[Rfam]
The family of this 527-nucleotide part of an RNA from Anurofeca richardsi is "Eukaryotic small subunit ribosomal RNA".
The literature on the family includes a 2002 paper in BMC Bioinformatics by Cannone et al., "The comparative RNA web (CRW) site: an online database of comparative sequence and structure information for ribosomal, intron, and other RNAs".
Its Rfam clan is "SSU clan".
Pairs were carried over by alignment from the consensus structure, which is taken from published work.
Nucleotides: 527
Base pairs, nucleotide, nucleotide: 001490003488009487011358013356014355018351019350020349251345252344253343254342255340256339258337261333262332263331264330267311268310271307272306273305275303276302278300282293283292284291316327319326320325363404364403365402366401367400368399373397377393378392379391380390415486416485417484418479419478420477422462423461424460427457428456429455430454431453432452433451434450436449437448438447466473467472492519493518494517501512502511503510504509
Number, partner (000 for none) and nucleotide at each position: 001490c002000a003488g004000u005000u006000a007000a008000a009487a010000a011358g012000c013356u014355c015000g016000u017000a018351g019350u020349u021000g022000g023000a024000u025000u026000u027000u028000g029000g030000a031000u032000u033000g034000c035000g036000u037000c038000u039000a040000a041000c042000g043000g044000u045000c046000g047000g048000c049000c050000g051000u052000g053000a054000g055000g056000u057000u058000c059000g060000u061000a062000c063000u064000g065000u066000u067000g068000g069000g070000u071000g072000c073000u074000u075000u076000c077000u078000u079000c080000u081000u082000c083000u084000c085000g086000a087000a088000g089000a090000c091000c092000a093000c094000g095000u096000g097000u098000g099000c100000c101000c102000u103000u104000a105000a106000c107000u108000g109000a110000g111000u112000g113000u114000g115000c116000g117000u118000g119000g120000g121000g122000u123000u124000c125000g126000g127000g128000a129000c130000u131000u132000u133000u134000a135000c136000u137000g138000u139000g140000a141000g142000a143000a144000a145000u146000u147000a148000g149000a150000g151000u152000g153000u154000u155000c156000a157000a158000a159000g160000c161000a162000g163000g164000c165000a166000u167000u168000u169000g170000c171000u172000u173000g174000a175000a176000u177000a178000u179000u180000g181000c182000a183000g184000c185000a186000u187000g188000g189000a190000a191000u192000a193000a194000u195000g196000g197000a198000a199000u200000a201000g202000g203000a204000u205000c206000a207000c208000g209000a210000u211000c212000u213000u214000a215000u216000u217000u218000u219000g220000u221000u222000g223000g224000u225000u226000u227000c228000u229000a230000g231000g232000a233000u234000c235000g236000a237000g238000a239000u240000a241000a242000u243000g244000a245000u246000u247000a248000a249000u250000a251345g252344g253343g254342a255340u256339a257000g258337u259000g260000g261333g262332g263331c264330a265000u266000u267311a268310a269000u270000a271307u272306u273305u274000a275303a276302u277000u278300g279000u280000c281000a282293g283292a284291g285000g286000u287000g288000a289000a290000a291284u292283u293282c294000u295000u296000g297000g298000a299000u300278u301000u302276a303275u304000g305273a306272a307271a308000g309000a310268u311267u312000a313000a314000c315000u316327u317000c318000u319326g320325c321000g322000a323000a324000a325320g326319c327316a328000u329000u330264u331263g332262c333261c334000a335000a336000g337258g338000a339256u340255g341000u342254u343253u344252u345251c346000g347000u348000u349020a350019a351018u352000c353000a354000a355014g356013a357000a358011c359000a360000a361000a362000a363404g364403u365402u366401a367400g368399g369000g370000g371000a372000u373397c374000g375000a376000a377393g378392a379391c380390g381000a382000u383000c384000a385000g386000a387000u388000a389000c390380c391379g392378u393377c394000g395000u396000a397373g398000u399368c400367u401366u402365a403364a404363c405000c406000a407000u408000a409000a410000a411000c412000u413000a414000u415486g416485c417484c418479g419478a420477c421000u422462a423461g424460g425000g426000a427457u428456u429455g430454g431453c432452g433451g434450g435000c436449g437448a438447u439000u440000a441000u442000u443000a444000u445000a446000u447438g448437u449436c450434c451433c452432c453431g454430u455429c456428a457427g458000c459000a460424c461423c462422u463000u464000a465000u466473g467472a468000g469000a470000a471000a472467u473466c474000a475000a476000a477420g478419u479418u480000u481000u482000u483000g484417g485416g486415u487009u488003c489000c490001g491000g492519g493518g494517g495000g496000a497000g498000u499000a500000u501512g502511g503510u504509c505000g506000c507000a508000a509504g510503g511502c512501u513000g514000a515000a516000a517494c518493u519492u520000a521000a522000a523000g524000g525000a526000a527000u